[Rfam]
The record is a 231-nucleotide RNA from Oryza brachyantha, which matches "MIR408 microRNA precursor family" in Rfam. It scores 77 bits against the family's covariance model. On this family, see Mica et al., BMC Genomics 2009: "High throughput approaches reveal splicing of primary microRNA transcripts and tissue specific expression of mature microRNAs in Vitis vinifera". Rfam 15.1 lists 299 matches to the family in 186 species. NCBI's taxonomy places the organism under Eukaryota, Viridiplantae, Streptophyta, Magnoliopsida, Oryza.
RNA sequence: GAUUGGAGAGGAGAGAGUUCAGACAGGGAUGAGGCAGAGCAUGGGAUGGGGCUAUCAACAGAUCGAUAGAUUCCAGAUUCCUUUUCUUGAUCUGUACUAGUUGUGUGUAUCCUCCUCUUGUGGAUUGCUGUUGUUUGGGGAGAAGAGAGAGUGUUGCGAGUGAGCUGCUGGUGUUGUUGUUGCUCCCUCCCCUGCACUGCCUCUUCCCUGGCUGCUCCCCUGCAUCUCCUC
Numbered sequence: 001g002a003u004u005g006g007a008g009a010g011g012a013g014a015g016a017g018u019u020c021a022g023a024c025a026g027g028g029a030u031g032a033g034g035c036a037g038a039g040c041a042u043g044g045g046a047u048g049g050g051g052c053u054a055u056c057a058a059c060a061g062a063u064c065g066a067u068a069g070a071u072u073c074c075a076g077a078u079u080c081c082u083u084u085u086c087u088u089g090a091u092c093u094g095u096a097c098u099a100g101u102u103g104u105g106u107g108u109a110u111c112c113u114c115c116u117c118u119u120g121u122g123g124a125u126u127g128c129u130g131u132u133g134u135u136u137g138g139g140g141a142g143a144a145g146a147g148a149g150a151g152u153g154u155u156g157c158g159a160g161u162g163a164g165c166u167g168c169u170g171g172u173g174u175u176g177u178u179g180u181u182g183c184u185c186c187c188u189c190c191c192c193u194g195c196a197c198u199g200c201c202u203c204u205u206c207c208c209u210g211g212c213u214g215c216u217c218c219c220c221u222g223c224a225u226c227u228c229c230u231c
Stems, first nucleotide, its partner, number of pairs: 020214003024210006032202006039195003043191001045190001049185004